Rfam assigns this 69-nucleotide RNA sequence from Parastagonospora nodorum to the family "bZIP non canonical Hac1/Xbp1 intron". By type it is a small RNA. Rfam describes the family as follows. bZIP intron RNA is a non-canonical intron that was first reported in HAC1 gene in yeast and XBP1 gene in Metazoa. Rfam 15.1 lists 1,325 matches to the family in 1,320 species. Rfam's curators put it in the seed alignment.
RNA sequence: CCGAAUUCGACUUCGACACAAUAUCCUGCCGGCGAUUAUUGUGCGACCUGCAGUGUCAGUCGGAUUCGG
Numbered sequence: 001c002c003g004a005a006u007u008c009g010a011c012u013u014c015g016a017c018a019c020a021a022u023a024u025c026c027u028g029c030c031g032g033c034g035a036u037u038a039u040u041g042u043g044c045g046a047c048c049u050g051c052a053g054u055g056u057c058a059g060u061c062g063g064a065u066u067c068g069g
Stems, first nucleotide, its partner, number of pairs: 001069006008062005020040002023036003045057003